[Rfam]
Annotation: The family of this 240-nucleotide sequence from Cohnella cholangitidis is "glmS glucosamine-6-phosphate activated ribozyme aptamer". Rfam describes the family as follows. This entry contains a glucosamine-6-phosphate activated ribozyme that is found in the mRNA for GlmS. GlmS is an enzyme that uses fructose-6-phosphate and glutamine to generate glucosamine-6-phosphate. The source organism's lineage runs through Bacteria, Bacillati, Bacilli, Caryophanales and Cohnella. By type it is a riboswitch. The match comes from Rfam's covariance-model search (70 bits).
RNA sequence: AUAGCAAGAUUAGCGCCAGAACUUGUUGAAUCUUGGCGAAACGCGGAAGGGCAAAGAUCAGGGACGGGAAAGCUGAUCCGAGCGGCAAACUUUAACGUGGAACCCAUGAAAGCGACAAGUUGACGAGGUGAAGGUGUUCGGAACAUUCGGCGGGGACCUUCCGGCUUAUCAUCGAAGCCGAUAAUCGGAGUACAAAACGCUUAGGGCAACCGGGCGAACAAAAAUCCGAUACGAUGAACG
Numbered sequence: 001a002u003a004g005c006a007a008g009a010u011u012a013g014c015g016c017c018a019g020a021a022c023u024u025g026u027u028g029a030a031u032c033u034u035g036g037c038g039a040a041a042c043g044c045g046g047a048a049g050g051g052c053a054a055a056g057a058u059c060a061g062g063g064a065c066g067g068g069a070a071a072g073c074u075g076a077u078c079c080g081a082g083c084g085g086c087a088a089a090c091u092u093u094a095a096c097g098u099g100g101a102a103c104c105c106a107u108g109a110a111a112g113c114g115a116c117a118a119g120u121u122g123a124c125g126a127g128g129u130g131a132a133g134g135u136g137u138u139c140g141g142a143a144c145a146u147u148c149g150g151c152g153g154g155g156a157c158c159u160u161c162c163g164g165c166u167u168a169u170c171a172u173c174g175a176a177g178c179c180g181a182u183a184a185u186c187g188g189a190g191u192a193c194a195a196a197a198c199g200c201u202u203a204g205g206g207c208a209a210c211c212g213g214g215c216g217a218a219c220a221a222a223a224a225u226c227c228g229a230u231a232c233g234a235u236g237a238a239c240g
Stems, first nucleotide, its partner, number of pairs: 020121008130161005138150004162180006184230006198216005204211002